[Rfam]
A member of the RNA family "Ciliate telomerase RNA" from Tetrahymena australis, 162 nucleotides long.

RNA sequence: UUAUACCCGCAUAUCAUUCAGACCCUUUAUGGAACUGUCAUUCAACCCCAAAAAUCUAGUGCAAAUAUUGUCUUAAUUACUUAGGCUAAAAGAAAUAAGUAUUAAAGCGGGACAAGGCAUCGACAUUUGAUACAAAUAUUGAUCAAUGGAUGUCUUAUUUUU
Number, nucleotide and partner (000 for none) at each position: 001u000002u000003a000004u000005a000006c111007c110008c109009g108010c107011a000012u000013a000014u000015c000016a000017u000018u000019c037020a036021g035022a000023c000024c032025c031026u000027u000028u000029a000030u000031g025032g024033a000034a000035c021036u020037g019038u000039c000040a000041u000042u000043c000044a000045a000046c000047c000048c000049c000050a000051a000052a000053a000054a000055u000056c000057u000058a000059g000060u000061g000062c000063a000064a000065a000066u000067a000068u000069u000070g000071u085072c084073u083074u000075a000076a000077u000078u101079a100080c000081u098082u097083a073084g072085g071086c000087u000088a000089a000090a000091a000092g000093a000094a000095a000096u000097a082098a081099g000100u079101a078102u000103u000104a000105a000106a000107g010108c009109g008110g007111g006112a000113c000114a156115a155116g154117g153118c152119a151120u150121c149122g000123a000124c148125a147126u000127u146128u145129g144130a143131u142132a000133c000134a000135a000136a000137u000138a000139u000140u000141g000142a131143u130144c129145a128146a127147u125148g124149g121150a120151u119152g118153u117154c116155u115156u114157a000158u000159u000160u000161u000162u000
It is annotated as a non-coding RNA gene. On this family, see McCormick-Graham and Romero, Nucleic Acids Res 1995: "Ciliate telomerase RNA structural features". Its Rfam clan is "Telomerase clan". Rfam links the family to the GO terms telomerase activity, telomerase catalytic core complex and telomere maintenance via telomerase. The organism belongs to Tetrahymena, within Eukaryota.